[Rfam]
Nucleotides: 046
Stems, first nucleotide, its partner, number of pairs: 001020008033045005
Number, partner (000 for none) and nucleotide at each position: 001020c002019c003018c004017g005016g006015c007014a008013a009000u010000g011000a012000a013008u014007u015006g016005c017004c018003g019002g020001g021000c022000u023000g024000g025000u026000g027000u028000c029000g030000u031000u032000c033045g034044u035043c036042c037041c038000u039000u040000c041037g042036g043035g044034a045033c046000u